Shown here is a 98-nucleotide sequence, a member of the family "Proteo-phage-1 RNA". The sequence is in the family's curated seed alignment.
[Rfam]
RNA sequence: ACCCUGCCGCAGGGGCGCUAGCGUUUGAUCGGUCAAGCUAGCGCAAGGCGGCUGCGGAUAAGCCGGGAGUGCCGCACUCCAGAAAAACCCCGGCAGCG
Numbered sequence: 001a002c003c004c005u006g007c008c009g010c011a012g013g014g015g016c017g018c019u020a021g022c023g024u025u026u027g028a029u030c031g032g033u034c035a036a037g038c039u040a041g042c043g044c045a046a047g048g049c050g051g052c053u054g055c056g057g058a059u060a061a062g063c064c065g066g067g068a069g070u071g072c073c074g075c076a077c078u079c080c081a082g083a084a085a086a087a088c089c090c091c092g093g094c095a096g097c098g
Stems, first nucleotide, its partner, number of pairs: 002014003007051004017042006053076005062094005